[Rfam]
RNA: Small nucleolar RNA U54
Organism: Miscanthus lutarioriparius
RNA sequence: AGCUCAGUGAUUGUAGCCAAUUACGUUGGCAAUAUACGCUAUGCUGACCUCAGUUCGAUGAACAUUUUGAGUAUGAGAGCU
Numbered sequence: 001a002g003c004u005c006a007g008u009g010a011u012u013g014u015a016g017c018c019a020a021u022u023a024c025g026u027u028g029g030c031a032a033u034a035u036a037c038g039c040u041a042u043g044c045u046g047a048c049c050u051c052a053g054u055u056c057g058a059u060g061a062a063c064a065u066u067u068u069g070a071g072u073a074u075g076a077g078a079g080c081u
Stems, first nucleotide, its partner, number of pairs: 001081005